[Rfam]
The record is a 75-nucleotide RNA from Branchiostoma floridae, which matches "Small nucleolar RNA SNORD24" in Rfam. It scores 57 bits against the family's covariance model. Taxonomically the source falls in Branchiostoma (Eukaryota, Eumetazoa, Chordata, Leptocardii). Rfam links the family to the GO terms RNA processing and nucleolus.

RNA sequence: UGCCUAUGAUGAAAGCCAAUAUUUGCUAGUUGAUGCUCACUGAUAUCAACCUCAACCACCAAGAUCUCUGAGGCA
Numbered sequence: 001u002g003c004c005u006a007u008g009a010u011g012a013a014a015g016c017c018a019a020u021a022u023u024u025g026c027u028a029g030u031u032g033a034u035g036c037u038c039a040c041u042g043a044u045a046u047c048a049a050c051c052u053c054a055a056c057c058a059c060c061a062a063g064a065u066c067u068c069u070g071a072g073g074c075a
Base pairs, nucleotide, nucleotide: 001075002074003073004072